[Rfam]
This 77-nucleotide sequence from Microlunatus antarcticus belongs to the Rfam family "Fluoride riboswitch aptamer (crcB RNA motif)".
On this family, see Baker et al., Science 2012: "Widespread genetic switches and toxicity resistance proteins for fluoride".
NCBI's taxonomy places the organism under Bacteria, Actinomycetota, Actinomycetes, Propionibacteriales, Microlunatus.
It scores 44 bits against the family's covariance model.
The base pairs follow the family's consensus structure, which is taken from published work.

RNA sequence: CUCAAGGACGGCGAUGGAUUCCGCCUGGGGCGUUCUCGCUCCGAACCGCCAGAUUGGCUGAUGACUCCUCCCGACGU
Numbered sequence: 001c002u003c004a005a006g007g008a009c010g011g012c013g014a015u016g017g018a019u020u021c022c023g024c025c026u027g028g029g030g031c032g033u034u035c036u037c038g039c040u041c042c043g044a045a046c047c048g049c050c051a052g053a054u055u056g057g058c059u060g061a062u063g064a065c066u067c068c069u070c071c072c073g074a075c076g077u
Stems, first nucleotide, its partner, number of pairs: 010025004016068003020064002048058003